RNA sequence: GAAGUCCGGCGCAGGUAAAGGAGUAGCGUCCAGCCUGGUAGCGAGUGUUGCGCGAGUCCGCCGAUGACGGCGGCCGCGAAGCGUACACAGCCAUCGAGAGGGGUGGGCUAUUGAGCCACGAAAAUCGAGUCGCAGAGGCCGAGACCGUCGCAAGGGUCGAAGGCAACAUGAACGACCCCGCGAAGCGAGGGGCCGCCACUCUGCCGAGGUCAAAGACCC
Numbered sequence: 001g002a003a004g005u006c007c008g009g010c011g012c013a014g015g016u017a018a019a020g021g022a023g024u025a026g027c028g029u030c031c032a033g034c035c036u037g038g039u040a041g042c043g044a045g046u047g048u049u050g051c052g053c054g055a056g057u058c059c060g061c062c063g064a065u066g067a068c069g070g071c072g073g074c075c076g077c078g079a080a081g082c083g084u085a086c087a088c089a090g091c092c093a094u095c096g097a098g099a100g101g102g103g104u105g106g107g108c109u110a111u112u113g114a115g116c117c118a119c120g121a122a123a124a125u126c127g128a129g130u131c132g133c134a135g136a137g138g139c140c141g142a143g144a145c146c147g148u149c150g151c152a153a154g155g156g157u158c159g160a161a162g163g164c165a166a167c168a169u170g171a172a173c174g175a176c177c178c179c180g181c182g183a184a185g186c187g188a189g190g191g192g193c194c195g196c197c198a199c200u201c202u203g204c205c206g207a208g209g210u211c212a213a214a215g216a217c218c219c
Stems, first nucleotide, its partner, number of pairs: 012037005020031003024188001026186002039093001041091002045088004049083002051078004058073006112213001113211001115210003119206002132204006138164003143158004169198002173195002176192004
Rfam assigns this 219-nucleotide RNA sequence from a Rhodospirillales bacterium to the family "Group II catalytic intron D1-D4-6". A reference for the family is Bonen and Vogel (2001), "The ins and outs of group II introns", Trends Genet. From the family's description: Group II introns are found in rRNA, tRNA and mRNA of organelles in fungi, plants and protists, and also in mRNA in bacteria. Lineage of the source: Bacteria > Pseudomonadati > Pseudomonadota > Alphaproteobacteria > Rhodospirillales. It scores 150 bits against the family's covariance model.